[Rfam]
RNA sequence: AAGUGUUACAGCUCUUUUAGAAUUUGUCUAGUAGGUUUUCCAGUGACCAGAAAAUCCUC
Numbered sequence: 001a002a003g004u005g006u007u008a009c010a011g012c013u014c015u016u017u018u019a020g021a022a023u024u025u026g027u028c029u030a031g032u033a034g035g036u037u038u039u040c041c042a043g044u045g046a047c048c049a050g051a052a053a054a055u056c057c058u059c
Stems, first nucleotide, its partner, number of pairs: 034056007043047001
The family of this 59-nucleotide sequence from Pan troglodytes is "U7 small nuclear RNA". NCBI's taxonomy places the organism under Eukaryota, Chordata, Primates, Hominoidea, Pan. Animal histone pre-mRNAs are spliced by a different mechanism than nuclear pre-mRNAs and self-splicing introns.